Shown here is a 133-nucleotide RNA from Carlito syrichta, a member of the family "Small nucleolar RNA SNORA41". It scores 120 bits against the family's covariance model. Gene Ontology terms of the family: RNA processing and nucleolus. The source organism's lineage runs through Eukaryota, Sarcopterygii, Eutheria, Euarchontoglires and Carlito. Rfam's curators write: ACA41 is a member of the H/ACA class of snoRNA that guide the sites of modification of uridines to pseudouridines. The base pairs follow the family's consensus structure, which was predicted with PFOLD. Rfam classes the family as an H/ACA-box small nucleolar RNA.
RNA sequence: UUCCACAGCUAUUGUCUGCAGCUGCUCUUUUGGUGACAGCUGUGGUAUUCUUCUGUGGGAUAGAAACUGUUAACACAGUUCAACACCUCUUUCUUAGCAAAACAGAAAGUUGGCAGAGUUGUGUCAGACAUAA
Numbered sequence: 001u002u003c004c005a006c007a008g009c010u011a012u013u014g015u016c017u018g019c020a021g022c023u024g025c026u027c028u029u030u031u032g033g034u035g036a037c038a039g040c041u042g043u044g045g046u047a048u049u050c051u052u053c054u055g056u057g058g059g060a061u062a063g064a065a066a067c068u069g070u071u072a073a074c075a076c077a078g079u080u081c082a083a084c085a086c087c088u089c090u091u092u093c094u095u096a097g098c099a100a101a102a103c104a105g106a107a108a109g110u111u112g113g114c115a116g117a118g119u120u121g122u123g124u125c126a127g128a129c130a131u132a133a
Stems, first nucleotide, its partner, number of pairs: 003058004016045009073122003086113002089109006
Dot-bracket structure: ..((((.........(((((((((............))))))))).........))))..............(((..........((.((((((.........))))))..))......)))...........